[Rfam]
RNA sequence: GUGCGGGCCCCUGGCCCUCACACUCCUCACACCCCCUGGCCCGGCGCGUCCGGGCUUU
Dot-bracket structure: (((.((((.....)))).)))................(((((((.....)))))))..
Rfam assigns this 58-nucleotide RNA to the family "Cyanobacterial functional RNA 1". The family's consensus secondary structure is taken from published work. For this family Rfam cites "A motif-based search in bacterial genomes identifies the ortholog of the small RNA Yfr1 in all lineages of cyanobacteria" (Voss et al., BMC Genomics, 2007).